[Rfam]
RNA sequence: CCCCGGACUCGCGUUCGGGGCUAGCACAUGCCGCCACUUCGUGGCU
Numbered sequence: 001c002c003c004c005g006g007a008c009u010c011g012c013g014u015u016c017g018g019g020g021c022u023a024g025c026a027c028a029u030g031c032c033g034c035c036a037c038u039u040c041g042u043g044g045c046u
Stems, first nucleotide, its partner, number of pairs: 001020008033045005
RNA: Acido-Lenti-1 RNA